Rfam assigns this 165-nucleotide RNA from Cohnella lubricantis to the family "c-di-AMP riboswitch aptamer (ydaO/yuaA leader)". Gene Ontology terms of the family: regulation of gene expression and cyclic-di-AMP binding. It scores 88 bits against the family's covariance model.
RNA sequence: CAUACUAUCCAGCCGAAUUUCUGCCAAGAAAACGGGGGAACCAACUGUCGUAUGCUUGACCGCAUGCGGCUUCGGGGUGAAUUCCGGCGUCACCAGCGCCGGAUAGGGCAGCCUGUUCAAGCCCGAACCCGUCAGCUAACCUCGUAGGCUGCUCAGAACAGGACU
Numbered sequence: 001c002a003u004a005c006u007a008u009c010c011a012g013c014c015g016a017a018u019u020u021c022u023g024c025c026a027a028g029a030a031a032a033c034g035g036g037g038g039a040a041c042c043a044a045c046u047g048u049c050g051u052a053u054g055c056u057u058g059a060c061c062g063c064a065u066g067c068g069g070c071u072u073c074g075g076g077g078u079g080a081a082u083u084c085c086g087g088c089g090u091c092a093c094c095a096g097c098g099c100c101g102g103a104u105a106g107g108g109c110a111g112c113c114u115g116u117u118c119a120a121g122c123c124c125g126a127a128c129c130c131g132u133c134a135g136c137u138a139a140c141c142u143c144g145u146a147g148g149c150u151g152c153u154c155a156g157a158a159c160a161g162g163a164c165u
Base pairs, nucleotide, nucleotide: 011150012149013148014147018031019030020029032145033144034143035142036141037140042074075130076129077128083103084102085101086100087099088098106124107123108122109121